[Rfam]
RNA sequence: AGAGUAAGCGAGGUGGUUGCGGAAUAGGAGCAAAUGCUGCUGUUCUGAGGAAAGUCCGGGCACCCGAAAGACCAAGCUUGCUGGGUAACGCCCAGUGCGAGCGAUCGCGAGGAAAGUGCCACAGAAACAUACCGCCGAUGGGACUUCGGUUCCAGGUAAGGGUGCAAAGGUGCGGUAAGAGCGCACCAGCAGCAUCGAGAGGUGCUGGCUCGGUAAACCCCGGCGGGGUGCAAGGCUGGAGGAACUAGGGUUGGUCUUUUACCCGUUCCGCUUGAAGAUGCCGCAAGAGGUGUCUGGUGACAGGCAUCCCAGAUAGAUAACCGCCCUCUGAAAGUGCAUGGCAGUUUCGGAGAACAGAACCCGGCUUAUGUCUUGCUCUGUCC
Numbered sequence: 001a002g003a004g005u006a007a008g009c010g011a012g013g014u015g016g017u018u019g020c021g022g023a024a025u026a027g028g029a030g031c032a033a034a035u036g037c038u039g040c041u042g043u044u045c046u047g048a049g050g051a052a053a054g055u056c057c058g059g060g061c062a063c064c065c066g067a068a069a070g071a072c073c074a075a076g077c078u079u080g081c082u083g084g085g086u087a088a089c090g091c092c093c094a095g096u097g098c099g100a101g102c103g104a105u106c107g108c109g110a111g112g113a114a115a116g117u118g119c120c121a122c123a124g125a126a127a128c129a130u131a132c133c134g135c136c137g138a139u140g141g142g143a144c145u146u147c148g149g150u151u152c153c154a155g156g157u158a159a160g161g162g163u164g165c166a167a168a169g170g171u172g173c174g175g176u177a178a179g180a181g182c183g184c185a186c187c188a189g190c191a192g193c194a195u196c197g198a199g200a201g202g203u204g205c206u207g208g209c210u211c212g213g214u215a216a217a218c219c220c221c222g223g224c225g226g227g228g229u230g231c232a233a234g235g236c237u238g239g240a241g242g243a244a245c246u247a248g249g250g251u252u253g254g255u256c257u258u259u260u261a262c263c264c265g266u267u268c269c270g271c272u273u274g275a276a277g278a279u280g281c282c283g284c285a286a287g288a289g290g291u292g293u294c295u296g297g298u299g300a301c302a303g304g305c306a307u308c309c310c311a312g313a314u315a316g317a318u319a320a321c322c323g324c325c326c327u328c329u330g331a332a333a334g335u336g337c338a339u340g341g342c343a344g345u346u347u348c349g350g351a352g353a354a355c356a357g358a359a360c361c362c363g364g365c366u367u368a369u370g371u372c373u374u375g376c377u378c379u380g381u382c383c
Stems, first nucleotide, its partner, number of pairs: 001379008011369001012325007020047008052367003056364005061230004070258002076224002079222002081095005096110001097108004111220002116218002118214003132161002134157003139154006169187006189209001190207007234282003238272002241269003249263003253259001289308008
Rfam assigns this 383-nucleotide sequence from Desertifilum tharense to the family "Bacterial RNase P class A". The family's RNA type in Rfam is ribozyme.